[Rfam]
RNA sequence: UACAGGAGGUCCCCAAAUGAUGCGCAGCAUCAUUUUUUGCAUGGGACCGACGAGCUGCCGCCGAACGAAGUGAGGGACAACACAAAAA
Number, nucleotide and partner (000 for none) at each position: 001u000002a000003c000004a000005g000006g000007a000008g048009g047010u046011c045012c044013c043014c000015a000016a000017a033018u032019g031020a030021u029022g028023c000024g000025c000026a000027g000028c022029a021030u020031c019032a018033u017034u000035u000036u000037u000038u000039g000040c000041a000042u000043g013044g012045g011046a010047c009048c008049g000050a000051c000052g000053a000054g000055c000056u000057g078058c000059c076060g000061c075062c074063g000064a000065a071066c070067g000068a000069a000070g066071u065072g000073a000074g062075g061076g059077a000078c057079a000080a000081c000082a000083c000084a000085a000086a000087a000088a000